About this RNA: Small nucleolar RNA SNORD24: a 78-nucleotide sequence from Ostreococcus tauri. Lineage of the source: Eukaryota > Viridiplantae > Chlorophyta > Bathycoccaceae > Ostreococcus. Rfam links the family to the GO terms nucleolus and RNA processing. A search with the family's covariance model found it, with a score of 59 bits.

Nucleotides: 078
Base pairs, nucleotide, nucleotide: 001078002077003076004075
Number, partner (000 for none) and nucleotide at each position: 001078a002077g003076c004075c005000g006000a007000g008000g009000a010000u011000g012000u013000u014000c015000a016000a017000a018000u019000a020000u021000a022000u023000u024000u025000g026000c027000u028000a029000c030000u031000c032000u033000c034000g035000a036000g037000g038000u039000u040000c041000g042000a043000c044000g045000g046000u047000g048000a049000c050000g051000a052000c053000a054000c055000u056000c057000a058000a059000u060000c061000a062000c063000c064000a065000a066000g067000a068000u069000c070000g071000c072000u073000g074000a075004g076003g077002c078001u